The record is a 276-nucleotide RNA sequence from Geosmithia morbida, which matches "Fungal signal recognition particle RNA" in Rfam.
The literature on the family includes a 2000 paper in Science by Batey et al., "Crystal structure of the ribonucleoprotein core of the signal recognition particle".
Its Rfam clan is "SRP clan".
Its family is annotated with signal recognition particle, plasma membrane targeting, SRP-dependent cotranslational protein targeting to membrane, signal sequence recognition and signal recognition particle, endoplasmic reticulum targeting in the Gene Ontology.
Pairs were carried over by alignment from the consensus structure, which is taken from published work.

[Rfam]
RNA sequence: GGCUGUAAUGGUCUAAUGGUAGAAGACGCUCAGUUAUCUUGACUUGCUCUUACCAAACCCGUAAGAUCCCCUCCAUGUCGCCCAGCCCGAACGCCGCGGUGGCCGCCCACUCGCAUGGGUAACCUGCGAUUCUGUGGUUGCUUGGCCCUAAGCGUUGAGAAUGAUACUUCAGGGAGGCUUCACUCUGCAGAGGCAUUCUCCCCGUCGCGUGGCGGGUUGGAUUACGAACGUGGGGGGCUUGGUGAGGCAGUUCGAGAUGGAGCUGCACGACUACUU
Number, nucleotide and partner (000 for none) at each position: 001g013002g012003c011004u000005g000006u000007a000008a000009u000010g000011g003012u002013c001014u000015a000016a000017u273018g272019g271020u270021a000022g268023a000024a000025g000026a000027c000028g263029c262030u261031c260032a000033g000034u000035u259036a258037u257038c256039u000040u254041g253042a252043c000044u250045u249046g248047c247048u000049c246050u245051u244052a243053c242054c241055a240056a239057a000058c237059c000060c000061g000062u000063a000064a000065g000066a000067u000068c000069c000070c236071c235072u000073c233074c232075a231076u230077g229078u227079c226080g225081c000082c220083c219084a218085g217086c216087c215088c214089g213090a000091a210092c209093g208094c207095c000096g205097c204098g203099g202100u000101g139102g138103c137104c136105g135106c134107c000108c000109a131110c000111u129112c128113g127114c126115a125116u000117g124118g123119g000120u000121a000122a000123c118124c117125u115126g114127c113128g112129a111130u000131u109132c000133u000134g106135u105136g104137g103138u102139u101140g000141c000142u000143u000144g000145g000146c000147c000148c152149u000150a000151a000152g148153c000154g000155u000156u000157g200158a199159g198160a197161a196162u195163g000164a000165u000166a000167c192168u191169u190170c000171a000172g000173g000174g185175a184176g183177g000178c000179u000180u000181c000182a000183c176184u175185c174186u000187g000188c000189a000190g169191a168192g167193g000194c000195a162196u161197u160198c159199u158200c157201c000202c099203c098204g097205u096206c000207g094208c093209g092210u091211g000212g000213c089214g088215g087216g086217u085218u084219g083220g082221a000222u000223u000224a000225c080226g079227a078228a000229c077230g076231u075232g074233g073234g000235g071236g070237g058238c000239u056240u055241g054242g053243u052244g051245a050246g049247g047248c046249a045250g044251u000252u042253c041254g040255a000256g038257a037258u036259g035260g031261a030262g029263c028264u000265g000266c000267a000268c022269g000270a020271c019272u018273a017274c000275u000276u000